[Rfam]
About this RNA
mir-190 microRNA precursor family: a 78-nucleotide RNA from Ceutorhynchus assimilis. The base pairs follow the family's consensus structure, which was predicted with RNAalifold. Clan: mir-50 clan. On this family, see Kloosterman et al., Nucleic Acids Res 2006: "Cloning and expression of new microRNAs from zebrafish". The family has 76 seed sequences and 1,667 matches in Rfam 15.1.
RNA sequence: UCCGCUAUAAGAUAUGUUUGAUAUUCUUGGUUGUCGUUUUGAAAAGCACCCAGGAGUCAAACAUAUUAUUAUAGAGGC
Numbered sequence: 001u002c003c004g005c006u007a008u009a010a011g012a013u014a015u016g017u018u019u020g021a022u023a024u025u026c027u028u029g030g031u032u033g034u035c036g037u038u039u040u041g042a043a044a045a046g047c048a049c050c051c052a053g054g055a056g057u058c059a060a061a062c063a064u065a066u067u068a069u070u071a072u073a074g075a076g077g078c
Stems, first nucleotide, its partner, number of pairs: 005074005011067012024054002029051002032048002

The source organism's lineage runs through Eukaryota, Hexapoda, Endopterygota, Curculionidae and Ceutorhynchus. Gene Ontology terms of the family: RISC complex and miRNA-mediated post-transcriptional gene silencing.